[Rfam]
RNA sequence: CUCACGCUGAGCCACGCGCACAAUACGUAAUCAGGAUUAAGUUUUGUUCGUUCGGCUCGCGUUAAGC
Numbered sequence: 001c002u003c004a005c006g007c008u009g010a011g012c013c014a015c016g017c018g019c020a021c022a023a024u025a026c027g028u029a030a031u032c033a034g035g036a037u038u039a040a041g042u043u044u045u046g047u048u049c050g051u052u053c054g055g056c057u058c059g060c061g062u063u064a065a066g067c
Base pairs, nucleotide, nucleotide: 002064004062005061006060008059009058010057011056012055013054017050018049020047021046022045023044025042026041